Shown here is a 180-nucleotide RNA sequence from Hymenochirus boettgeri, a member of the family "Small Cajal body specific RNA 16".
RNA sequence: GUGGUCUGGGGAAAAGGCUGCUUGGUUCUGCAGCUUGACUAGCUGUGUGUCUGUACCUUGUAACUUACCCCUGACCUAGAAAAAUCAACAGGCUGGACUCUUUCUGGGAGCCUGAAUGCGCAGUAACAGGUGUGGGUGUUUCUUAGUAUUUAACGCUCAUGUAUAAUACUGCGCACAUCU
Number, nucleotide and partner (000 for none) at each position: 001g000002u000003g076004g075005u074006c073007u000008g071009g070010g069011g000012a000013a000014a000015a065016g064017g000018c000019u000020g000021c000022u063023u062024g057025g056026u055027u000028c053029u000030g000031c000032a000033g050034c049035u000036u000037g000038a000039c000040u000041a000042g000043c000044u000045g000046u000047g000048u000049g034050u033051c000052u000053g028054u000055a026056c025057c024058u000059u000060g000061u000062a023063a022064c016065u015066u000067a000068c000069c010070c009071c008072u000073g006074a005075c004076c003077u000078a000079g000080a000081a000082a000083a000084a000085u000086c000087a000088a000089c108090a000091g105092g104093c000094u000095g101096g000097a000098c000099u000100c000101u095102u000103u000104c092105u091106g000107g000108g089109a000110g000111c000112c000113u000114g000115a000116a000117u175118g174119c173120g172121c171122a170123g169124u168125a167126a000127c000128a164129g000130g000131u000132g000133u159134g158135g157136g000137u155138g154139u153140u152141u000142c000143u000144u000145a000146g000147u000148a000149u000150u000151u000152a140153a139154c138155g137156c000157u135158c134159a133160u000161g000162u000163a000164u128165a000166a000167u125168a124169c123170u122171g121172c120173g119174c118175a117176c000177a000178u000179c000180u000
A reference for the family is Darzacq et al. (2002), "Cajal body-specific small nuclear RNAs: a novel class of 2'-O-methylation and pseudouridylation guide RNAs", EMBO J.
The base pairs follow the family's consensus structure, which was predicted with RNAfold.
Rfam 15.1 lists 790 matches to the family in 514 species.
scaRNAs are a specific class of small nuclear RNAs which localise to the Cajal bodies and guide the modification of RNA polymerase II transcribed spliceosomal RNAs U1, U2, U4, U5 and U12. ACA47 belongs to the H/ACA box class of guide RNAs as it has the predicted hairpin-hinge-hairpin-tail structure, the conserved H/ACA-box motifs and is found associated with GAR1. ACA47 is predicted to guide the pseudouridylation of residue U5 of the U1 spliceosomal snRNA.